[Rfam]
RNA sequence: AAAUAUAACUAGGGGAGUCCAAUUAAGUAGGGCUGAGAGAGAAGUACGUUGAAACUUCUUGACUCUUGGGACCUGAUCUGGCUCAUACCAGCGUGGGGAAGUUAGCAUUAUUUAAA
Numbered sequence: 001a002a003a004u005a006u007a008a009c010u011a012g013g014g015g016a017g018u019c020c021a022a023u024u025a026a027g028u029a030g031g032g033c034u035g036a037g038a039g040a041g042a043a044g045u046a047c048g049u050u051g052a053a054a055c056u057u058c059u060u061g062a063c064u065c066u067u068g069g070g071a072c073c074u075g076a077u078c079u080g081g082c083u084c085a086u087a088c089c090a091g092c093g094u095g096g097g098g099a100a101g102u103u104a105g106c107a108u109u110a111u112u113u114a115a116a
Base pairs, nucleotide, nucleotide: 006104007103008102009101010100011066012065013064014063016060017033018032019031020030040059041058042057043056044055072097073096074095075094078091079090080089081088

The record is a 116-nucleotide RNA sequence from Peribacillus psychrosaccharolyticus, which matches "TPP riboswitch aptamer (THI element)" in Rfam. Taxonomically the source falls in Peribacillus (Bacteria, Bacillati, Caryophanales, Bacillaceae).